Shown here is a 173-nucleotide sequence from Streptomyces sp. W1SF4, a member of the family "c-di-AMP riboswitch aptamer (ydaO/yuaA leader)". Taxonomically the source falls in Streptomyces (Bacteria, Bacillati, Actinomycetes, Kitasatosporales). It scores 54 bits against the family's covariance model.
Nucleotides: 173
Base pairs, nucleotide, nucleotide: 011158012157013156014155026152027151028150029149030148035085086138087137088136095112096111097110098109099108116132117131118130119129
Number, partner (000 for none) and nucleotide at each position: 001000g002000u003000c004000g005000c006000g007000c008000a009000a010000g011158c012157g013156c014155c015000g016000a017000a018000g019000g020000c021000a022000g023000g024000a025000g026152c027151g028150g029149g030148g031000g032000a033000a034000c035085c036000a037000a038000g039000g040000u041000a042000g043000g044000c045000g046000c047000c048000g049000g050000g051000a052000a053000g054000g055000g056000c057000c058000g059000u060000u061000g062000a063000g064000a065000g066000a067000c068000g069000g070000c071000c072000c073000g074000c075000g076000u077000a078000c079000c080000g081000g082000c083000u084000a085035g086138g087137g088136g089000u090000g091000a092000a093000g094000a095112c096111a097110c098109g099108c100000g101000c102000c103000g104000c105000g106000c107000c108099g109098c110097g111096u112095g113000a114000c115000c116132g117131g118130g119129c120000a121000a122000c123000u124000c125000a126000u127000c128000c129119g130118c131117c132116c133000g134000a135000a136088c137087c138086c139000g140000a141000c142000a143000g144000c145000u146000c147000a148030c149029c150028u151027c152026g153000a154000a155014g156013g157012c158011g159000u160000c161000g162000g163000u164000g165000a166000g167000g168000a169000g170000a171000a172000a173000u